[Rfam]
MIR8565 microRNA precursor family: a 154-nucleotide RNA from Amborella trichopoda. The family's consensus secondary structure was predicted with RNAalifold. Rfam links the family to the GO terms miRNA-mediated post-transcriptional gene silencing and RISC complex. NCBI's taxonomy places the organism under Eukaryota, Viridiplantae, Euphyllophyta, Amborellales, Amborella. It scores 139 bits against the family's covariance model.

RNA sequence: CCCCCACCUAUGUGUGUAGGACCCCAAAGGAUCACCAUUAAAUUUAGCACGGAUCCCUAAAAAAGUUAUCACAUGGGUGUAGGAUUUGACUUUUUUAGAGAUCCGUGACAAAUUUAAUAGUGAUCCUUUGGAGUCCUACACACAUGGGUGGGAG
Number, nucleotide and partner (000 for none) at each position: 001c000002c000003c152004c151005c150006a149007c148008c147009u146010a145011u144012g143013u142014g000015u140016g139017u138018a137019g136020g135021a134022c133023c000024c131025c130026a129027a128028a127029g000030g125031a124032u123033c000034a121035c120036c000037a118038u117039u116040a115041a114042a113043u112044u111045u110046a000047g000048c107049a106050c105051g104052g103053a102054u101055c100056c000057c098058u097059a096060a095061a094062a093063a092064a091065g090066u089067u088068a087069u082070c000071a080072c079073a078074u000075g000076g000077g000078u073079g072080u071081a000082g069083g000084a000085u000086u000087u068088g067089a066090c065091u064092u063093u062094u061095u060096u059097a058098g057099a000100g055101a054102u053103c052104c051105g050106u049107g048108a000109c000110a045111a044112a043113u042114u041115u040116a039117a038118u037119a000120g035121u034122g000123a032124u031125c030126c000127u028128u027129u026130g025131g024132a000133g022134u021135c020136c019137u018138a017139c016140a015141c000142a013143c012144a011145u010146g009147g008148g007149u006150g005151g004152g003153a000154g000